The family of this 140-nucleotide sequence from Nicotiana sylvestris is "small nucleolar RNA snoR137".
Pairs were carried over by alignment from the consensus structure, which was predicted with RNAalifold.
The literature on the family includes a 2009 paper in Nucleic Acids Res by Chen and Wu, "Mining small RNA sequencing data: a new approach to identify small nucleolar RNAs in Arabidopsis".
Lineage of the source: Eukaryota > Gunneridae > asterids > Nicotianeae > Nicotiana.
Rfam 15.1 lists 808 matches to the family in 221 species.
Its family is annotated with nucleolus and RNA processing in the Gene Ontology.
A search with the family's covariance model found it, with a score of 59 bits.

RNA sequence: GUUGCUUCUUACUUGUGAAAACCUCUUAAUUUUACAUGGCGUAUUCCUGUUGCGGAAGCAUAGAUUGAUGUUUUUGGCAGUAUUAAACAGCGUGAUAAGUACAUAAUGUUGCAUCGUGUUACUUGUCUUCUGGUGCAACC
Numbered sequence: 001g002u003u004g005c006u007u008c009u010u011a012c013u014u015g016u017g018a019a020a021a022c023c024u025c026u027u028a029a030u031u032u033u034a035c036a037u038g039g040c041g042u043a044u045u046c047c048u049g050u051u052g053c054g055g056a057a058g059c060a061u062a063g064a065u066u067g068a069u070g071u072u073u074u075u076g077g078c079a080g081u082a083u084u085a086a087a088c089a090g091c092g093u094g095a096u097a098a099g100u101a102c103a104u105a106a107u108g109u110u111g112c113a114u115c116g117u118g119u120u121a122c123u124u125g126u127c128u129u130c131u132g133g134u135g136c137a138a139c140c
Stems, first nucleotide, its partner, number of pairs: 003060006017046003021042002024039002076134001078132003082128001089120003093116004